[Rfam]
RNA sequence: ACUAUGAUCCAUGCGGAUCCUCUAUGCGCGUAUCGUUCGGACGAGCCGAACCGCUAGCGC
Numbered sequence: 001a002c003u004a005u006g007a008u009c010c011a012u013g014c015g016g017a018u019c020c021u022c023u024a025u026g027c028g029c030g031u032a033u034c035g036u037u038c039g040g041a042c043g044a045g046c047c048g049a050a051c052c053g054c055u056a057g058c059g060c
Base pairs, nucleotide, nucleotide: 006019007018008017009016010015026060027059028058029057035051036050037049038048039047040046